[Rfam]
Notes:
Rfam assigns this 63-nucleotide RNA from Mucilaginibacter xinganensis to the family "Fluoride riboswitch aptamer (crcB RNA motif)". Gene Ontology terms of the family: response to fluoride and positive regulation of gene expression. Taxonomically the source falls in Mucilaginibacter (Bacteria, Bacteroidota, Sphingobacteriia, Sphingobacteriales).

RNA sequence: CUUGCAUCAGGAAAUGGUGUCUUCCUUUUAAAAACCGCAUUCGCUGAUGACGCCUGCAACAUA
Numbered sequence: 001c002u003u004g005c006a007u008c009a010g011g012a013a014a015u016g017g018u019g020u021c022u023u024c025c026u027u028u029u030a031a032a033a034a035c036c037g038c039a040u041u042c043g044c045u046g047a048u049g050a051c052g053c054c055u056g057c058a059a060c061a062u063a
Stems, first nucleotide, its partner, number of pairs: 010025004016054006037044002